About this RNA
This 99-nucleotide RNA from Digitaria exilis belongs to the Rfam family "Plastid-rps12 3UTR RNA". It is annotated as a cis-regulatory element.
[Rfam]
RNA sequence: GGUUUAUUUGGUGCAAAACCAAUCAUCUACAUUGGAAUUAGAAUAAGCAAUUUAUCCAUUGGUAGCAAAUGGUUAUCCAUUAAGCGGAGGAAAUAGUAA
Numbered sequence: 001g002g003u004u005u006a007u008u009u010g011g012u013g014c015a016a017a018a019c020c021a022a023u024c025a026u027c028u029a030c031a032u033u034g035g036a037a038u039u040a041g042a043a044u045a046a047g048c049a050a051u052u053u054a055u056c057c058a059u060u061g062g063u064a065g066c067a068a069a070u071g072g073u074u075a076u077c078c079a080u081u082a083a084g085c086g087g088a089g090g091a092a093a094u095a096g097u098a099a
Stems, first nucleotide, its partner, number of pairs: 008022004055088003058080002061077006